[Rfam]
RNA sequence: ACAAAGGGGAUUGUGAAAUUCCCGAGAAUAGAAUAGUUUAGUUAAGUCUAGUUUAGUUUUUGUGUUGGAAAAGCAUCGUAAACAUCCGUUUUCGAUGCUUUUUUUGU
Number, nucleotide and partner (000 for none) at each position: 001a063002c062003a061004a060005a059006g000007g022008g021009g020010a019011u018012u017013g000014u000015g000016a000017a012018a011019u010020u009021c008022c007023c000024g000025a000026g000027a000028a000029u000030a000031g000032a000033a000034u000035a054036g053037u000038u051039u050040a049041g048042u000043u000044a000045a000046g000047u000048c041049u040050a039051g038052u000053u036054u035055a000056g000057u000058u000059u005060u004061u003062g002063u001064g000065u000066u000067g000068g000069a000070a000071a100072a099073g098074c097075a096076u095077c094078g093079u000080a091081a090082a089083c000084a000085u000086c000087c000088g000089u082090u081091u080092u000093c078094g077095a076096u075097g074098c073099u072100u071101u000102u000103u000104u000105u000106g000107u000
About this RNA: Bacteroides sRNA BTnc049: a 107-nucleotide RNA sequence from Bacteroides sp. CAG:462. By type it is a small RNA. On this family, see Ryan et al., Nat Commun 2020: "A high-resolution transcriptome map identifies small RNA regulation of metabolism in the gut microbe Bacteroides thetaiotaomicron". It scores 91 bits against the family's covariance model.